[Rfam]
RNA sequence: AGAAAAAAGCAGAAGCGCCCGCUUCUCGCCUAGCAGACAUGAGCCUGUGGGCCGAUGAACGAUUUAAUAUUCAAUUUUAAGCGGGGAACUGUGAAGAGUUUCCCGCUUUUCUGCUGCA
Numbered sequence: 001a002g003a004a005a006a007a008a009g010c011a012g013a014a015g016c017g018c019c020c021g022c023u024u025c026u027c028g029c030c031u032a033g034c035a036g037a038c039a040u041g042a043g044c045c046u047g048u049g050g051g052c053c054g055a056u057g058a059a060c061g062a063u064u065u066a067a068u069a070u071u072c073a074a075u076u077u078u079a080a081g082c083g084g085g086g087a088a089c090u091g092u093g094a095a096g097a098g099u100u101u102c103c104c105g106c107u108u109u110u111c112u113g114c115u116g117c118a
Stems, first nucleotide, its partner, number of pairs: 011026006028052003034047003038043001082105009

Rfam assigns this 118-nucleotide RNA sequence from Liquorilactobacillus ghanensis to the family "Ribosomal protein L20 leader". About the family: This family is a putative r-protein leader autoregulatory structure found in B. subtilis and other low-GC Gram-positive bacteria. It is located in the 5' untranslated regions of mRNAs encoding initiation factor 3 followed by ribosomal proteins L35 and L20 (infC-rpmI-rplT). A Rho-independent transcription terminator structure that is probably involved in regulation is included at the 3' end. Rfam links the family to the GO term regulation of gene expression. Taxonomically the source falls in Liquorilactobacillus ghanensis (Bacteria, Bacillota, Lactobacillales, Liquorilactobacillus). The literature on the family includes a 1994 paper in Prog Nucleic Acid Res Mol Biol by Zengel and Lindahl, "Diverse mechanisms for regulating ribosomal protein synthesis in Escherichia coli". The family's RNA type in Rfam is cis-regulatory leader. It scores 62 bits against the family's covariance model.